[Rfam]
U4 spliceosomal RNA: a 141-nucleotide RNA from Mesorhabditis belari. Rfam classes the family as a spliceosomal small nuclear RNA. Rfam describes the family as follows. U4 small nuclear RNA (U4 snRNA) is a component of the major U2-dependent spliceosome. The source organism's lineage runs through Eukaryota, Eumetazoa, Chromadorea, Mesorhabditinae and Mesorhabditis.
RNA sequence: AGCUUUGCGCAGAGGCGAUAACGUGACCAAUGAGGCUUAGCCGAGGUGCGUUUAUUGCUGGUUGAAAACUGAUACCAAUUACCCGUCGCUUUCUGCCCUGAAAUAUGGGUGUUAGCGCAAUUUUUGGAAGGCCCUCGGGGC
Numbered sequence: 001a002g003c004u005u006u007g008c009g010c011a012g013a014g015g016c017g018a019u020a021a022c023g024u025g026a027c028c029a030a031u032g033a034g035g036c037u038u039a040g041c042c043g044a045g046g047u048g049c050g051u052u053u054a055u056u057g058c059u060g061g062u063u064g065a066a067a068a069c070u071g072a073u074a075c076c077a078a079u080u081a082c083c084c085g086u087c088g089c090u091u092u093c094u095g096c097c098c099u100g101a102a103a104u105a106u107g108g109g110u111g112u113u114a115g116c117g118c119a120a121u122u123u124u125u126g127g128a129a130g131g132c133c134c135u136c137g138g139g140g141c
Base pairs, nucleotide, nucleotide: 020052021051022050023049024048026047027046028045034042035041036040085118086117089115090114093111096108097107131141132140133139134138